[Rfam]
RNA sequence: UGCAGCUGCGGCAAUGAUGUCUGCCCUGAACCGCCUUAAAAAGCUGAUGACGUCUACUUUAUU
Numbered sequence: 001u002g003c004a005g006c007u008g009c010g011g012c013a014a015u016g017a018u019g020u021c022u023g024c025c026c027u028g029a030a031c032c033g034c035c036u037u038a039a040a041a042a043g044c045u046g047a048u049g050a051c052g053u054c055u056a057c058u059u060u061a062u063u
Base pairs, nucleotide, nucleotide: 010025011024012023013022016054017053018052019051020050021049033044034043036041